[Rfam]
RNA sequence: UGUGUAGAGGUGGGAAAGAUGCUGUUAUUUCUCAGCAAAAUUUCUUGUCUCUCUCUGU
Numbered sequence: 001u002g003u004g005u006a007g008a009g010g011u012g013g014g015a016a017a018g019a020u021g022c023u024g025u026u027a028u029u030u031c032u033c034a035g036c037a038a039a040a041u042u043u044c045u046u047g048u049c050u051c052u053c054u055c056u057g058u
Base pairs, nucleotide, nucleotide: 002055004053006052007051008050009049010048011047012046013045014044015043016042017041021036022035023034
This 58-nucleotide RNA from Sarcophilus harrisii belongs to the Rfam family "mir-7398 microRNA precursor family". Pairs were carried over by alignment from the consensus structure, which was predicted with RNAalifold. The source organism's lineage runs through Eukaryota, Deuterostomia, Craniata, Metatheria and Sarcophilus.